Overview
Shown here is a 109-nucleotide RNA sequence from Glycine max, a member of the family "MIR4387 microRNA precursor family". Pairs were carried over by alignment from the consensus structure, which was predicted with RNAalifold. The source organism's lineage runs through Eukaryota, Spermatophyta, Gunneridae, Papilionoideae and Glycine subgen. Soja. Gene Ontology terms of the family: miRNA-mediated post-transcriptional gene silencing and RISC complex.
RNA sequence: GAGUGUUAUAUUAUCACGCCUAAUCACUGACGCAUCAUUGUCACAUCAUUGAAGGUGAAGGCGUGACAAUGAGGUGUUAGUGAUAAGGCGUGAUGAUGUGAUUUGUUAU
Numbered sequence: 001g002a003g004u005g006u007u008a009u010a011u012u013a014u015c016a017c018g019c020c021u022a023a024u025c026a027c028u029g030a031c032g033c034a035u036c037a038u039u040g041u042c043a044c045a046u047c048a049u050u051g052a053a054g055g056u057g058a059a060g061g062c063g064u065g066a067c068a069a070u071g072a073g074g075u076g077u078u079a080g081u082g083a084u085a086a087g088g089c090g091u092g093a094u095g096a097u098g099u100g101a102u103u104u105g106u107u108a109u
Stems, first nucleotide, its partner, number of pairs: 003104001005102017023084011035072010046061002049058002